[Rfam]
RNA sequence: AAUCGCUGCCCUCCUUGGGCGUUUCCUCCCUGGACUUGGGCCGCGCGCGAGCGCGGCCCCUUUUAUGUGCGAUC
Numbered sequence: 001a002a003u004c005g006c007u008g009c010c011c012u013c014c015u016u017g018g019g020c021g022u023u024u025c026c027u028c029c030c031u032g033g034a035c036u037u038g039g040g041c042c043g044c045g046c047g048c049g050a051g052c053g054c055g056g057c058c059c060c061u062u063u064u065a066u067g068u069g070c071g072a073u074c
Stems, first nucleotide, its partner, number of pairs: 008020004038059009
RNA: Makes More Granules Regulator RNA (mmgR)
Organism: Enterovirga rhinocerotis